[Rfam]
RNA: Ribosomal protein L19 leader
Organism: Neobacillus thermocopriae
RNA sequence: ACGAUGUUCCGCUGCAUUGAAGUUUAUUAGUAUGUAAGAGCAUCUG
Numbered sequence: 001a002c003g004a005u006g007u008u009c010c011g012c013u014g015c016a017u018u019g020a021a022g023u024u025u026a027u028u029a030g031u032a033u034g035u036a037a038g039a040g041c042a043u044c045u046g
Stems, first nucleotide, its partner, number of pairs: 003044007013036005